[Rfam]
RNA sequence: GAAGUUCGCCAGACUGUCGCUGGUGCAAGCGUGGAAACACCGCACUGGAGGAACGUCCGGACUGCACAGGGCAGCGUAGCAGGUAACACCUGCCCACCGCGAGGUGAGGAUCAGAGCAACAGAGACGAGUCGCCGUGCCCACGGGCAUGGCGGGUGAAACGGGCAAUCUCUACGCGCAGCAAUACCAAGAAGGCAUACGGUGAUCUGGCUCCGGGGAGUAUGCGGGUAGGUAGCAUUGAGCCGCUCGGGUGACCAGCGGCCCAGAUUAAUGGCAGUCACAUGGUCGGCAACGGCCAUGCACAGAAUCCGGCGUACCGGCGGACUUCAAUC
Numbered sequence: 001g002a003a004g005u006u007c008g009c010c011a012g013a014c015u016g017u018c019g020c021u022g023g024u025g026c027a028a029g030c031g032u033g034g035a036a037a038c039a040c041c042g043c044a045c046u047g048g049a050g051g052a053a054c055g056u057c058c059g060g061a062c063u064g065c066a067c068a069g070g071g072c073a074g075c076g077u078a079g080c081a082g083g084u085a086a087c088a089c090c091u092g093c094c095c096a097c098c099g100c101g102a103g104g105u106g107a108g109g110a111u112c113a114g115a116g117c118a119a120c121a122g123a124g125a126c127g128a129g130u131c132g133c134c135g136u137g138c139c140c141a142c143g144g145g146c147a148u149g150g151c152g153g154g155u156g157a158a159a160c161g162g163g164c165a166a167u168c169u170c171u172a173c174g175c176g177c178a179g180c181a182a183u184a185c186c187a188a189g190a191a192g193g194c195a196u197a198c199g200g201u202g203a204u205c206u207g208g209c210u211c212c213g214g215g216g217a218g219u220a221u222g223c224g225g226g227u228a229g230g231u232a233g234c235a236u237u238g239a240g241c242c243g244c245u246c247g248g249g250u251g252a253c254c255a256g257c258g259g260c261c262c263a264g265a266u267u268a269a270u271g272g273c274a275g276u277c278a279c280a281u282g283g284u285c286g287g288c289a290a291c292g293g294c295c296a297u298g299c300a301c302a303g304a305a306u307c308c309g310g311c312g313u314a315c316c317g318g319c320g321g322a323c324u325u326c327a328a329u330c
Base pairs, nucleotide, nucleotide: 001326002325003324004323005322006321007320008319009318010317012277013276014275015274016273017272018271020048021047022046023045024044025043026042053313054312055311057310058309059308060307061306062179063178064177065176069211070210071209072208074175075174076173077172078171079093080092081091082090083089094108095106096105097104098103109170110169114168115167116164117163130153131152132151133150134149135148136147137146138145139144183232184231185230186229193223194222195221196220197219198218204216205215206214240260241259242258243257244256245255247254248253
About this RNA: Shown here is a 330-nucleotide RNA sequence from Lampropedia hyalina, a member of the family "Bacterial RNase P class A". Its family is annotated with dimeric ribonuclease P complex, ribonuclease P activity and tRNA processing in the Gene Ontology. The organism belongs to Lampropedia hyalina, within Bacteria. By type it is a ribozyme.